[Rfam]
RNA sequence: GUCCGUUGAGCUCAAACCCGCACACGUAUCGACACGAUAUCCUGGGUGCCCGCAAGGGUUGGAUAUUGGGAUGCGUGGAGGCCUAAC
Numbered sequence: 001g002u003c004c005g006u007u008g009a010g011c012u013c014a015a016a017c018c019c020g021c022a023c024a025c026g027u028a029u030c031g032a033c034a035c036g037a038u039a040u041c042c043u044g045g046g047u048g049c050c051c052g053c054a055a056g057g058g059u060u061g062g063a064u065a066u067u068g069g070g071a072u073g074c075g076u077g078g079a080g081g082c083c084u085a086a087c
Stems, first nucleotide, its partner, number of pairs: 023077008035068008048059004
The record is an 87-nucleotide RNA sequence from Metapseudomonas resinovorans, which matches "t44 RNA" in Rfam.
Lineage of the source: Bacteria > Gammaproteobacteria > Pseudomonadales > Metapseudomonas > Metapseudomonas resinovorans.
The match comes from Rfam's covariance-model search (75 bits).